[Rfam]
RNA sequence: AUUUAUUAUCAAGAAUCUCAAGAACGGAGAUAGCAACCUGCAUUAACGAGCAAGGUGCUAAAGAGAUAAGCCAAUUAGUUGGAACCAAUGUUAGCCCA
Numbered sequence: 001a002u003u004u005a006u007u008a009u010c011a012a013g014a015a016u017c018u019c020a021a022g023a024a025c026g027g028a029g030a031u032a033g034c035a036a037c038c039u040g041c042a043u044u045a046a047c048g049a050g051c052a053a054g055g056u057g058c059u060a061a062a063g064a065g066a067u068a069a070g071c072c073a074a075u076u077a078g079u080u081g082g083a084a085c086c087a088a089u090g091u092u093a094g095c096c097c098a
Stems, first nucleotide, its partner, number of pairs: 006069005015031005032059003037055003040051002044094001046092001071082004
This 98-nucleotide RNA from Zobellia galactanivorans belongs to the Rfam family "SAM-I/IV (S-adenosyl methionine) riboswitch aptamer". Gene Ontology terms of the family: S-adenosylmethionine metabolic process and regulation of gene expression.